[Rfam]
RNA sequence: UGGCUGUAGCCAUAUCAUUGGAUCAUCACAGAAGAAAACUGGUCGGUUGUUGCUAUUGCUUUCUAGACAACCUGCUUACCAAGCUUCUGACAUUU
Numbered sequence: 001u002g003g004c005u006g007u008a009g010c011c012a013u014a015u016c017a018u019u020g021g022a023u024c025a026u027c028a029c030a031g032a033a034g035a036a037a038a039c040u041g042g043u044c045g046g047u048u049g050u051u052g053c054u055a056u057u058g059c060u061u062u063c064u065a066g067a068c069a070a071c072c073u074g075c076u077u078a079c080c081a082a083g084c085u086u087c088u089g090a091c092a093u094u095u
Stems, first nucleotide, its partner, number of pairs: 029089006041076003045072007
Shown here is a 95-nucleotide RNA from Camphora micrantha, a member of the family "Small nucleolar RNA snoR109".
Rfam classes the family as an H/ACA-box small nucleolar RNA.
Its family is annotated with RNA processing and nucleolus in the Gene Ontology.
The base pairs follow the family's consensus structure, which was predicted with WAR.